[Rfam]
RNA: Group II catalytic intron D1-D4-7
RNA sequence: CCCAGCAUAUGCCUGCUGGUCUGCUAGGAGAGCAUGCAUACGGGGCCAACCUGUAUGUGUGAAGCCUCUCCGACAAUGUCCUAAUAACCCGACCGUGAGGAAGGGCCUUCUCUGCGAGCUAUACGUGGGGAUAGGG
Numbered sequence: 001c002c003c004a005g006c007a008u009a010u011g012c013c014u015g016c017u018g019g020u021c022u023g024c025u026a027g028g029a030g031a032g033c034a035u036g037c038a039u040a041c042g043g044g045g046c047c048a049a050c051c052u053g054u055a056u057g058u059g060u061g062a063a064g065c066c067u068c069u070c071c072g073a074c075a076a077u078g079u080c081c082u083a084a085u086a087a088c089c090c091g092a093c094c095g096u097g098a099g100g101a102a103g104g105g106c107c108u109u110c111u112c113u114g115c116g117a118g119c120u121a122u123a124c125g126u127g128g129g130g131a132u133a134g135g136g
Base pairs, nucleotide, nucleotide: 002019003018004017005016006015007014028070029069030068031067032066033061034060035059036058037057038056039055040054041053042052043051044050088105089104093100094099111129112128113127114126115125116124
Dot-bracket structure: .((((((......))))))........(((((((((((((((((.....))))))))))))....))))).................((...((....))...)).....((((((.......)))))).......